[Rfam]
RNA sequence: UGUCUCCUCCACCCCUUCAAUAGGUGGAUUAAGCCCUGAGGCCCUGGCCUCGGGGCUUUUUUU
Dot-bracket structure: .......((((((.........))))))....((((((((........)))))))).......